[Rfam]
RNA sequence: CUCUCCCCUCGUGGGAGAGGGACAGAUUUUCCGCGUUCAGCGGAAAAUCAGGGUGAGGGG
Number, nucleotide and partner (000 for none) at each position: 001c000002u000003c000004u022005c021006c020007c019008c017009u016010c015011g000012u000013g000014g000015g010016a009017g008018a000019g007020g006021g005022a004023c000024a000025g049026a048027u047028u046029u045030u044031c043032c042033g041034c000035g000036u000037u000038c000039a000040g000041c033042g032043g031044a030045a029046a028047a027048u026049c025050a000051g000052g000053g000054u000055g000056a000057g000058g000059g000060g000
RNA: Whalefall-1 RNA